[Rfam]
RNA sequence: UUGGCACAUCAAUAGAUUAAAAAUGAACACAGUUUUAAAUAAUACUUGGUGGUGGUGCUUUCGAAACUUAACUUCGUGAAGUAGAACCUCGUAUAUUUAAAAUUUAAAAAUAUUCAAAAGGCUUGUC
Numbered sequence: 001u002u003g004g005c006a007c008a009u010c011a012a013u014a015g016a017u018u019a020a021a022a023a024u025g026a027a028c029a030c031a032g033u034u035u036u037a038a039a040u041a042a043u044a045c046u047u048g049g050u051g052g053u054g055g056u057g058c059u060u061u062c063g064a065a066a067c068u069u070a071a072c073u074u075c076g077u078g079a080a081g082u083a084g085a086a087c088c089u090c091g092u093a094u095a096u097u098u099a100a101a102a103u104u105u106a107a108a109a110a111u112a113u114u115c116a117a118a119a120g121g122c123u124u125g126u127c
Stems, first nucleotide, its partner, number of pairs: 036100001038098001042096003047091003051088003058081003062076001064074002
A member of the RNA family "Bacteroidete tryptophan peptide leader RNA" from Snuella sedimenti, 127 nucleotides long. Taxonomically the source falls in Snuella (Bacteria, Bacteroidota, Flavobacteriales, Flavobacteriaceae). The base pairs follow the family's consensus structure, which is taken from published work. Gene Ontology terms of the family: S-adenosylmethionine metabolic process and regulation of gene expression.